[Rfam]
RNA sequence: CCACGUCCCCGCGCACAUCCCCCCCGGCGCCGGGACUUCCCAGAGCCGGGCUUCGGCGCCCACCCCCCCCGGGCGCCGGAGCCCGGUUCUCUG
Numbered sequence: 001c002c003a004c005g006u007c008c009c010c011g012c013g014c015a016c017a018u019c020c021c022c023c024c025c026g027g028c029g030c031c032g033g034g035a036c037u038u039c040c041c042a043g044a045g046c047c048g049g050g051c052u053u054c055g056g057c058g059c060c061c062a063c064c065c066c067c068c069c070c071g072g073g074c075g076c077c078g079g080a081g082c083c084c085g086g087u088u089c090u091c092u093g
Stems, first nucleotide, its partner, number of pairs: 005036005012029003043089010054078008
Rfam assigns this 93-nucleotide RNA from Streptomyces malaysiense to the family "Streptomyces RNA 3202". By type it is a small RNA. A search with the family's covariance model found it, with a score of 63 bits. Pairs were carried over by alignment from the consensus structure. Identified by deep sequencing of transcriptome at the end of exponential growth phase. Appears smaller on northern blot than sequencing transcript. This indicates processing step. Streptomyces specific.